[Rfam]
RNA: Burkholderia sRNA Bp1_Cand738_SIPHT
Organism: Burkholderia sp. YI23
RNA sequence: AAAAACCGGCGUGCAAAACGCCGGCCGUGACAACCAAACAGCCAUGAAUCGCCGGGCAGGAGCGGCGCAGGCGACGCAUGUGCGUCCGAAGAACCUGAGGCUAAGGUAAAAAGUUUAAGAACCUGCAGUCAAUGCCAAGCGAUUCUACCAGCGUUUAAUGAUCCGUCAAUGCUAAAGACUUCUGUUUCAAUUACUUACAGU
Numbered sequence: 001a002a003a004a005a006c007c008g009g010c011g012u013g014c015a016a017a018a019c020g021c022c023g024g025c026c027g028u029g030a031c032a033a034c035c036a037a038a039c040a041g042c043c044a045u046g047a048a049u050c051g052c053c054g055g056g057c058a059g060g061a062g063c064g065g066c067g068c069a070g071g072c073g074a075c076g077c078a079u080g081u082g083c084g085u086c087c088g089a090a091g092a093a094c095c096u097g098a099g100g101c102u103a104a105g106g107u108a109a110a111a112a113g114u115u116u117a118a119g120a121a122c123c124u125g126c127a128g129u130c131a132a133u134g135c136c137a138a139g140c141g142a143u144u145c146u147a148c149c150a151g152c153g154u155u156u157a158a159u160g161a162u163c164c165g166u167c168a169a170u171g172c173u174a175a176a177g178a179c180u181u182c183u184g185u186u187u188c189a190a191u192u193a194c195u196u197a198c199a200g201u
Stems, first nucleotide, its partner, number of pairs: 006024007042106002045103002050067005073086005133171002138166001141163001146160002